[Rfam]
RNA sequence: ACGUUAUCACGAAAGGCAGAGGGAUUAGACCCAUUGAAGCCUUGGCAACCUCUCAUUUUUUUGAGAAAGGUGCUACAUUCUACAAGUUUUUAACUUGACAGAUAACAG
Numbered sequence: 001a002c003g004u005u006a007u008c009a010c011g012a013a014a015g016g017c018a019g020a021g022g023g024a025u026u027a028g029a030c031c032c033a034u035u036g037a038a039g040c041c042u043u044g045g046c047a048a049c050c051u052c053u054c055a056u057u058u059u060u061u062u063g064a065g066a067a068a069g070g071u072g073c074u075a076c077a078u079u080c081u082a083c084a085a086g087u088u089u090u091u092a093a094c095u096u097g098a099c100a101g102a103u104a105a106c107a108g
Stems, first nucleotide, its partner, number of pairs: 003106006013043005021032003026082004044074004049070002051066004078100001083097006